[Rfam]
The family of this 98-nucleotide RNA from Oncorhynchus kisutch is "Small nucleolar RNA SNORD21". A search with the family's covariance model found it, with a score of 63 bits. Rfam links the family to the GO terms nucleolus and RNA processing. Pairs were carried over by alignment from the consensus structure, which was predicted with PFOLD. Rfam classes the family as a C/D-box small nucleolar RNA. The organism belongs to Oncorhynchus, within Eukaryota.

RNA sequence: GCUUGAUGAUGAUAGACUUGAGGCUGAGCAAAUUGUAGUUGGUCCUUCAUUUGCCCAAAUUGAUGUAAUCAACGUUUCAAGACGGGGCUGAGAGCAGU
Numbered sequence: 001g002c003u004u005g006a007u008g009a010u011g012a013u014a015g016a017c018u019u020g021a022g023g024c025u026g027a028g029c030a031a032a033u034u035g036u037a038g039u040u041g042g043u044c045c046u047u048c049a050u051u052u053g054c055c056c057a058a059a060u061u062g063a064u065g066u067a068a069u070c071a072a073c074g075u076u077u078c079a080a081g082a083c084g085g086g087g088c089u090g091a092g093a094g095c096a097g098u
Base pairs, nucleotide, nucleotide: 001095002094003093004092